RNA sequence: CGAUGCCUCUGGAAAGCGGUGCCGCGCGCACCCGCCCAUGGGGAAAGGCCCGGAUCCGGGCUGAAUCUCUCAGGCACCCCGACAGAGGGAGAGGA
Numbered sequence: 001c002g003a004u005g006c007c008u009c010u011g012g013a014a015a016g017c018g019g020u021g022c023c024g025c026g027c028g029c030a031c032c033c034g035c036c037c038a039u040g041g042g043g044a045a046a047g048g049c050c051c052g053g054a055u056c057c058g059g060g061c062u063g064a065a066u067c068u069c070u071c072a073g074g075c076a077c078c079c080c081g082a083c084a085g086a087g088g089g090a091g092a093g094g095a
Stems, first nucleotide, its partner, number of pairs: 004090001006088006018032004034075003038070001041069003047062006
The family of this 95-nucleotide RNA from Mycolicibacterium neoaurum is "Glycine riboswitch aptamer". Lineage of the source: Bacteria > Mycobacteriales > Mycobacterium > Mycobacterium (subgen. Mycolicibacterium) > Mycolicibacterium neoaurum. Rfam links the family to the GO term glycine biosynthetic process. This family represents the bacterial glycine riboswitch. Glycine riboswitches usually consist of two metabolite-binding aptamers domains with similar structures in tandem. The aptamers cooperatively bind glycine to regulate the expression of downstream genes.